[Rfam]
RNA sequence: UAAAGACAAGGGCAAAUCUGGUGAAAAUCAGUGGCGCAAAGCUAUAGGGGCUAAAGUGGUGACACUAUGCUAGCCAGUUGCCGAA
Numbered sequence: 001u002a003a004a005g006a007c008a009a010g011g012g013c014a015a016a017u018c019u020g021g022u023g024a025a026a027a028u029c030a031g032u033g034g035c036g037c038a039a040a041g042c043u044a045u046a047g048g049g050g051c052u053a054a055a056g057u058g059g060u061g062a063c064a065c066u067a068u069g070c071u072a073g074c075c076a077g078u079u080g081c082c083g084a085a
Stems, first nucleotide, its partner, number of pairs: 012037002018031005040079004047075002049071003056065003
RNA: c-di-GMP-I riboswitch aptamer
Organism: Chengkuizengella marina